This 57-nucleotide RNA from Kitasatospora aureofaciens belongs to the Rfam family "msiK RNA". Pairs were carried over by alignment from the consensus structure, which is taken from published work. The family's RNA type in Rfam is cis-regulatory element. It scores 51 bits against the family's covariance model.

RNA sequence: ACCACCCCCCCUUUACUCGGAUCGUCCGGCACGUUCCUGCCGGUGAAGGAGAGAACG
Numbered sequence: 001a002c003c004a005c006c007c008c009c010c011c012u013u014u015a016c017u018c019g020g021a022u023c024g025u026c027c028g029g030c031a032c033g034u035u036c037c038u039g040c041c042g043g044u045g046a047a048g049g050a051g052a053g054a055a056c057g
Base pairs, nucleotide, nucleotide: 009049010048012047013046014045015044026043027042028041029040030039031038